A member of the RNA family "Small nucleolar RNA snR43" from Brettanomyces bruxellensis, 208 nucleotides long.
The organism belongs to Brettanomyces bruxellensis, within Eukaryota.
Clan: SNORA9 clan.
It scores 64 bits against the family's covariance model.
Gene Ontology terms of the family: nucleolus and RNA processing.
The family's consensus secondary structure is taken from published work.
The literature on the family includes a 1996 paper in Cell by Balakin et al., "The RNA world of the nucleolus: two major families of small RNAs defined by different box elements with related functions".
[Rfam]
RNA sequence: AUCUCCCGAUUCUGCCCCACGCUCUGUUCUCUUCCAUAGAGUAAUGGGUUCUGUACGUUGGAGAAGAUCGAGUACCGCUGGAAUGAUGCAAACCUCAUAAAUUAUCAUUCAACAGUGUCAUUUCCAGCGGGCACUUCCAUUUCCAUUGGUGCUUUUUGUCUACUACCUUCUUACUUGGUAGUUACUACAAAUACCAGGGAAUACAUUU
Numbered sequence: 001a002u003c004u005c006c007c008g009a010u011u012c013u014g015c016c017c018c019a020c021g022c023u024c025u026g027u028u029c030u031c032u033u034c035c036a037u038a039g040a041g042u043a044a045u046g047g048g049u050u051c052u053g054u055a056c057g058u059u060g061g062a063g064a065a066g067a068u069c070g071a072g073u074a075c076c077g078c079u080g081g082a083a084u085g086a087u088g089c090a091a092a093c094c095u096c097a098u099a100a101a102u103u104a105u106c107a108u109u110c111a112a113c114a115g116u117g118u119c120a121u122u123u124c125c126a127g128c129g130g131g132c133a134c135u136u137c138c139a140u141u142u143c144c145a146u147u148g149g150u151g152c153u154u155u156u157u158g159u160c161u162a163c164u165a166c167c168u169u170c171u172u173a174c175u176u177g178g179u180a181g182u183u184a185c186u187a188c189a190a191a192u193a194c195c196a197g198g199g200a201a202u203a204c205a206u207u208u
Stems, first nucleotide, its partner, number of pairs: 003063004016048004021042005075130007082122008141201004147196005161187002164184001167181001170178002